[Rfam]
RNA: Plastid-ycf2 5UTR RNA
RNA sequence: AUGCUUCCAGUAGUAAUUGAACCUACAAAUUCACCAAUUAUGAGUUGGGCGCUUUGGCCAUUCAGCCAUGGAUGC
Numbered sequence: 001a002u003g004c005u006u007c008c009a010g011u012a013g014u015a016a017u018u019g020a021a022c023c024u025a026c027a028a029a030u031u032c033a034c035c036a037a038u039u040a041u042g043a044g045u046u047g048g049g050c051g052c053u054u055u056g057g058c059c060a061u062u063c064a065g066c067c068a069u070g071g072a073u074g075c
Base pairs, nucleotide, nucleotide: 003075004074006072007071008070010026011025012024013023040069041068042067044066045065046064047063048062049061051059
Dot-bracket structure: ..((.(((.((((.........)))).............(((.((((((.(.......).)))))))))))).))